A member of the RNA family "RAGATH-11 RNA" from Brachionus calyciflorus, 117 nucleotides long. Taxonomically the source falls in Brachionus (Eukaryota, Spiralia, Eurotatoria, Brachionidae). It is annotated as a small RNA.

[Rfam]
RNA sequence: CAACUCAAGAGAGCUGUAAGCAUGCGUUUGGGGUUCCAUGCUAAGUCGAGAUGGUUGUCGAGUUUGCAGCUACGGCUCAGAUGAGUGACUUUGUUUCUGAUGAACGUCCCCGUCUUU
Numbered sequence: 001c002a003a004c005u006c007a008a009g010a011g012a013g014c015u016g017u018a019a020g021c022a023u024g025c026g027u028u029u030g031g032g033g034u035u036c037c038a039u040g041c042u043a044a045g046u047c048g049a050g051a052u053g054g055u056u057g058u059c060g061a062g063u064u065u066g067c068a069g070c071u072a073c074g075g076c077u078c079a080g081a082u083g084a085g086u087g088a089c090u091u092u093g094u095u096u097c098u099g100a101u102g103a104a105c106g107u108c109c110c111c112g113u114c115u116u117u
Stems, first nucleotide, its partner, number of pairs: 001016002004013003020041005026036001031111003045101003048097003057089004062082002068077003